[Rfam]
RNA: Burkholderia RNA 14
RNA sequence: GUCGGAGUUGUCACGGUUCAGCCGCAGUCGGUGCCGGUCGUCACCGAGUUGCCGGGGCGCACGAAUGCGUUCCUGGUCGCGCAGGUCCGCGCGCGCGUGGACGGGAUCGUGUUGCGCCGGGAAUUCGUGGAAGGCAGCGACGUGAAGGCGGGGCAGCGGCUGUACAAGAUCGA
Numbered sequence: 001g002u003c004g005g006a007g008u009u010g011u012c013a014c015g016g017u018u019c020a021g022c023c024g025c026a027g028u029c030g031g032u033g034c035c036g037g038u039c040g041u042c043a044c045c046g047a048g049u050u051g052c053c054g055g056g057g058c059g060c061a062c063g064a065a066u067g068c069g070u071u072c073c074u075g076g077u078c079g080c081g082c083a084g085g086u087c088c089g090c091g092c093g094c095g096c097g098u099g100g101a102c103g104g105g106a107u108c109g110u111g112u113u114g115c116g117c118c119g120g121g122a123a124u125u126c127g128u129g130g131a132a133g134g135c136a137g138c139g140a141c142g143u144g145a146a147g148g149c150g151g152g153g154c155a156g157c158g159g160c161u162g163u164a165c166a167a168g169a170u171c172g173a
Stems, first nucleotide, its partner, number of pairs: 003054003007050001008047003011043001013041004018037002021034002023031001056149001058147001059143002066136003072133001074131001078093005094121001097118001100115001102114003106110001157172002160168002